This 140-nucleotide RNA from Jaculus jaculus belongs to the Rfam family "Small Cajal body specific RNA 3". The family is grouped with related families in Rfam's "SCARNA3 clan". Pairs were carried over by alignment from the consensus structure, which was predicted with RNAalifold. Lineage of the source: Eukaryota > Vertebrata > Eutheria > Rodentia > Jaculus. scaRNAs are a specific class of small nuclear RNAs which localise to the Cajal bodies and guide the modification of RNA polymerase II transcribed spliceosomal RNAs U1, U2, U4, U5 and U12.
RNA sequence: CUUGGAAGCCGCAGGAACCAAUCUUGUGGACAAACGAGAAAAUACUUUUGUCUACAGAAGGCAGCAAUCCUACAUAAUUAUGGAGGUCUCUGUCUGACUUAAGACAGCUAACUAAGUCUGAUAGUUCCCCUCCAUAAACC
Numbered sequence: 001c002u003u004g005g006a007a008g009c010c011g012c013a014g015g016a017a018c019c020a021a022u023c024u025u026g027u028g029g030a031c032a033a034a035c036g037a038g039a040a041a042a043u044a045c046u047u048u049u050g051u052c053u054a055c056a057g058a059a060g061g062c063a064g065c066a067a068u069c070c071u072a073c074a075u076a077a078u079u080a081u082g083g084a085g086g087u088c089u090c091u092g093u094c095u096g097a098c099u100u101a102a103g104a105c106a107g108c109u110a111a112c113u114a115a116g117u118c119u120g121a122u123a124g125u126u127c128c129c130c131u132c133c134a135u136a137a138a139c140c
Base pairs, nucleotide, nucleotide: 004070005069006068008065009064011062012061025056026055027054028053029052030051031050036047037046038045082133083132084131085130086129090124092122093121094120096118097117098116099115100114101113